The record is a 90-nucleotide RNA from Nocardia farcinica, which matches "Fluoride riboswitch aptamer (crcB RNA motif)" in Rfam. Pairs were carried over by alignment from the consensus structure, which is taken from published work. A reference for the family is Baker et al. (2012), "Widespread genetic switches and toxicity resistance proteins for fluoride", Science. Rfam's curators put it in the seed alignment.

RNA sequence: GAGUCCGCAGGCGAUGGAUCUCCGCCGAGACGACCGACCUAUGGGCCGUCUGAACCGCCCCGGUCCGGGGCUGAUGGUUCCUUCCCCACG
Numbered sequence: 001g002a003g004u005c006c007g008c009a010g011g012c013g014a015u016g017g018a019u020c021u022c023c024g025c026c027g028a029g030a031c032g033a034c035c036g037a038c039c040u041a042u043g044g045g046c047c048g049u050c051u052g053a054a055c056c057g058c059c060c061c062g063g064u065c066c067g068g069g070g071c072u073g074a075u076g077g078u079u080c081c082u083u084c085c086c087c088a089c090g
Stems, first nucleotide, its partner, number of pairs: 010026004016081003020077002057071004